[Rfam]
RNA sequence: CAGGCUUGCUGGAGCCCCCCAGCGGCGCCUGGGCUGUCGCCCUGCUGCGACGCCCGACACCGUGAACAACGAGGGGCUUUU
Numbered sequence: 001c002a003g004g005c006u007u008g009c010u011g012g013a014g015c016c017c018c019c020c021a022g023c024g025g026c027g028c029c030u031g032g033g034c035u036g037u038c039g040c041c042c043u044g045c046u047g048c049g050a051c052g053c054c055c056g057a058c059a060c061c062g063u064g065a066a067c068a069a070c071g072a073g074g075g076g077c078u079u080u081u
Stems, first nucleotide, its partner, number of pairs: 012079007023062003030056004038049001
Source information:
The family of this 81-nucleotide RNA sequence from Martelella mediterranea is "ybhL leader". The organism belongs to Martelella mediterranea, within Bacteria. A search with the family's covariance model found it, with a score of 60 bits. The base pairs follow the family's consensus structure. For this family Rfam cites "Evidence for a second class of S-adenosylmethionine riboswitches and other regulatory RNA motifs in alpha-proteobacteria" (Corbino et al., Genome Biol, 2005). The family's RNA type in Rfam is cis-regulatory leader. Rfam describes the family as follows. This family is a putative regulatory RNA structure that is found upstream of an uncharacterized membrane protein in alpha-proteobacteria.